[Rfam]
Nucleotides: 072
Base pairs, nucleotide, nucleotide: 001071002070003069004068005067006066007065010025011024012023013022027043028042029041030040031039048064049063050062051061052060
Number, partner (000 for none) and nucleotide at each position: 001071g002070u003069g004068g005067u006066c007065g008000u009000a010025g011024u012023g013022c014000a015000g016000u017000g018000g019000u020000u021000a022013g023012c024011a025010u026000a027043u028042c029041u030040g031039a032000u033000u034000c035000c036000c037000a038000u039031u040030c041029a042028g043027a044000a045000g046000a047000c048064c049063u050062g051061g052060a053000u054000u055000c056000g057000a058000c059000u060052u061051c062050c063049g064048g065007c066006g067005a068004u069003c070002a071001c072000a